Annotation:
A member of the RNA family "IS605-orfB-I RNA", 200 nucleotides long.
RNA sequence: UCCGGAUAAACUUGUAUCCAUCCAAGAGAAUGGGGCAAGUCACUUUACGGAAUUAGAUUAAGCAACACAUUUUGGGAUUGCCAAAGGCUUACAUACAAGCGAAAUUCCAAAGUGAAAGGAUAACCGUAUGUCCUUUAGCAUAUUUUAUGUUAUAAAAAUAAUCUUGAACAGCUUUAGUUAAGUUUUCAAGUUACGGUAUG
Numbered sequence: 001u002c003c004g005g006a007u008a009a010a011c012u013u014g015u016a017u018c019c020a021u022c023c024a025a026g027a028g029a030a031u032g033g034g035g036c037a038a039g040u041c042a043c044u045u046u047a048c049g050g051a052a053u054u055a056g057a058u059u060a061a062g063c064a065a066c067a068c069a070u071u072u073u074g075g076g077a078u079u080g081c082c083a084a085a086g087g088c089u090u091a092c093a094u095a096c097a098a099g100c101g102a103a104a105u106u107c108c109a110a111a112g113u114g115a116a117a118g119g120a121u122a123a124c125c126g127u128a129u130g131u132c133c134u135u136u137a138g139c140a141u142a143u144u145u146u147a148u149g150u151u152a153u154a155a156a157a158a159u160a161a162u163c164u165u166g167a168a169c170a171g172c173u174u175u176a177g178u179u180a181a182g183u184u185u186u187c188a189a190g191u192u193a194c195g196g197u198a199u200g
Stems, first nucleotide, its partner, number of pairs: 001051004006046001008044001010040006017034005022028001071111008087100002090097001117134005123197006129158001136152005163190006170183001
The family's consensus secondary structure is taken from published work. Rfam's curators put it in the seed alignment.